MIR398 microRNA precursor family: a 111-nucleotide RNA sequence from Protea cynaroides. Its family is annotated with miRNA-mediated post-transcriptional gene silencing and RISC complex in the Gene Ontology. Pairs were carried over by alignment from the consensus structure, which was predicted with WAR. NCBI's taxonomy places the organism under Eukaryota, Tracheophyta, Spermatophyta, Proteaceae, Protea.
[Rfam]
RNA sequence: AGGACUCCUACAGGGGCUGCCUGAGACCACAUGAGAGCCUUCAAUGUUCCUCUGCUACAUUGUUUAAUUGCACAGAUCCAUGUGUUCUCAGCUCGGCCCUGCUGGAAUUCC
Number, nucleotide and partner (000 for none) at each position: 001a000002g000003g000004a000005c000006u000007c105008c104009u000010a000011c101012a100013g099014g098015g000016g000017c095018u000019g093020c000021c000022u000023g089024a088025g087026a086027c000028c084029a083030c082031a081032u080033g000034a000035g000036a000037g000038c000039c000040u000041u000042c000043a000044a000045u000046g000047u000048u000049c000050c000051u000052c000053u000054g000055c000056u000057a000058c000059a000060u000061u000062g000063u000064u000065u000066a000067a000068u000069u000070g000071c000072a000073c000074a000075g000076a000077u000078c000079c000080a032081u031082g030083u029084g028085u000086u026087c025088u024089c023090a000091g000092c000093u019094c000095g017096g000097c000098c014099c013100u012101g011102c000103u000104g008105g007106a000107a000108u000109u000110c000111c000
A search with the family's covariance model found it, with a score of 55 bits. The literature on the family includes a 2004 paper in Mol Cell by Jones-Rhoades and Bartel, "Computational identification of plant microRNAs and their targets, including a stress-induced miRNA".